Rfam assigns this 78-nucleotide RNA from Laticauda laticaudata to the family "Mammalian CPEB3 ribozyme". From the family's description: The mammalian CPEB3 ribozyme is a self cleaving RNA located in the second intron of the CPEB3 gene which belongs to a family of genes regulating messenger RNA polyadenylation. The organism belongs to Laticauda, within Eukaryota. It scores 70 bits against the family's covariance model.

[Rfam]
RNA sequence: UACUGUUUGCUGGGGGCCAUAGAAGGAGCGUUCACGUCGCGGCCCCUGUCAGGUAUCUGUUUACCUGCGGAAUUUCCU
Dot-bracket structure: ............((((((..[[.[[[.(((.......)))))))))...((((((......)))))).....]]].]]